[Rfam]
RNA sequence: GGCUGGUCCAAAGGUAGUGAGUUAUUUCAACUGACUGUUCGCAGUCAGUUACAGAUCAAAUUCUUUGUUCUAUUCUUUCCCGUGUCUCACUACUGCACUUGGCUGGUCUUAG
Numbered sequence: 001g002g003c004u005g006g007u008c009c010a011a012a013g014g015u016a017g018u019g020a021g022u023u024a025u026u027u028c029a030a031c032u033g034a035c036u037g038u039u040c041g042c043a044g045u046c047a048g049u050u051a052c053a054g055a056u057c058a059a060a061u062u063c064u065u066u067g068u069u070c071u072a073u074u075c076u077u078u079c080c081c082g083u084g085u086c087u088c089a090c091u092a093c094u095g096c097a098c099u100u101g102g103c104u105g106g107u108c109u110u111a112g
Stems, first nucleotide, its partner, number of pairs: 001108008010100002014096002016091006043074003047071002